[Rfam]
RNA sequence: AAUUUCCUUCGGGGCAGGGUGCAAUUCCCGACCGACGGUAAGGAACUCAUUUUUGUUCUAAGUCCGUGACCCGUGCGGUUUGAAUACCAAACGGUGGAUCUGGUGAAACUCCAGAGCCGACAGUUAUAGUCUGGAUGGGAGAAGGAAUUU
Numbered sequence: 001a002a003u004u005u006c007c008u009u010c011g012g013g014g015c016a017g018g019g020u021g022c023a024a025u026u027c028c029c030g031a032c033c034g035a036c037g038g039u040a041a042g043g044a045a046c047u048c049a050u051u052u053u054u055g056u057u058c059u060a061a062g063u064c065c066g067u068g069a070c071c072c073g074u075g076c077g078g079u080u081u082g083a084a085u086a087c088c089a090a091a092c093g094g095u096g097g098a099u100c101u102g103g104u105g106a107a108a109c110u111c112c113a114g115a116g117c118c119g120a121c122a123g124u125u126a127u128a129g130u131c132u133g134g135a136u137g138g139g140a141g142a143a144g145g146a147a148u149u150u
Base pairs, nucleotide, nucleotide: 004147005146006145007144008143009142010141017029018028019027031130032129033119034118035067036066037065038064062117063116071094072093073092074091099115100114101113102112103111121133122132123131
RNA: FMN riboswitch aptamer (RFN element)